[Rfam]
RNA: DUF3800-VII RNA
RNA sequence: AGAAAACGUCGCCGGAUAAUGCGAGGGUGAUUACCAGCAUACUUGAUAUGUGGAAGUCGCACCGGGGGUUUUCUUCUUU
Numbered sequence: 001a002g003a004a005a006a007c008g009u010c011g012c013c014g015g016a017u018a019a020u021g022c023g024a025g026g027g028u029g030a031u032u033a034c035c036a037g038c039a040u041a042c043u044u045g046a047u048a049u050g051u052g053g054a055a056g057u058c059g060c061a062c063c064g065g066g067g068g069u070u071u072u073c074u075u076c077u078u079u
Stems, first nucleotide, its partner, number of pairs: 001074007010066001012065004020061005026035003038050004